[Rfam]
RNA sequence: GGAAAGUCGGCCCGGACGAUUGGCGCGUGAACCCGGUCAGAUCGGGAACGAAGCAGCCGCAGCGUUGUCCGGUCGGGUCGGUGUCCGGCUUUCCACC
Numbered sequence: 001g002g003a004a005a006g007u008c009g010g011c012c013c014g015g016a017c018g019a020u021u022g023g024c025g026c027g028u029g030a031a032c033c034c035g036g037u038c039a040g041a042u043c044g045g046g047a048a049c050g051a052a053g054c055a056g057c058c059g060c061a062g063c064g065u066u067g068u069c070c071g072g073u074c075g076g077g078u079c080g081g082u083g084u085c086c087g088g089c090u091u092u093c094c095a096c097c
Stems, first nucleotide, its partner, number of pairs: 004091005009084001012081003017075006025065004034059004042051003
RNA: Bacterial small signal recognition particle RNA
Organism: Formicincola oecophyllae